This 80-nucleotide sequence from Tripterygium wilfordii belongs to the Rfam family "small nucleolar RNA snoR117". For this family Rfam cites "Mining small RNA sequencing data: a new approach to identify small nucleolar RNAs in Arabidopsis" (Chen and Wu, Nucleic Acids Res, 2009). Pairs were carried over by alignment from the consensus structure, which was predicted with RNAalifold. The family's RNA type in Rfam is C/D-box small nucleolar RNA.
[Rfam]
RNA sequence: GGCCUGUGAUGUAUGAGAAUUUGUCCGUACCAUCUGAGAUUACUCUCUGAUGCAUCAAUAUCCUCUAGCUUCUGAGGCCU
Numbered sequence: 001g002g003c004c005u006g007u008g009a010u011g012u013a014u015g016a017g018a019a020u021u022u023g024u025c026c027g028u029a030c031c032a033u034c035u036g037a038g039a040u041u042a043c044u045c046u047c048u049g050a051u052g053c054a055u056c057a058a059u060a061u062c063c064u065c066u067a068g069c070u071u072c073u074g075a076g077g078c079c080u
Base pairs, nucleotide, nucleotide: 001079002078003077004076